[Rfam]
RNA sequence: AAUGAACUAAUGAUGAUUUAUUCCCAAACCCUGAAAAUAAAAGGAAGGAAUAAGUCGGACAUGUUCAUA
Numbered sequence: 001a002a003u004g005a006a007c008u009a010a011u012g013a014u015g016a017u018u019u020a021u022u023c024c025c026a027a028a029c030c031c032u033g034a035a036a037a038u039a040a041a042a043g044g045a046a047g048g049a050a051u052a053a054g055u056c057g058g059a060c061a062u063g064u065u066c067a068u069a
Stems, first nucleotide, its partner, number of pairs: 002068006014057003018053007030044002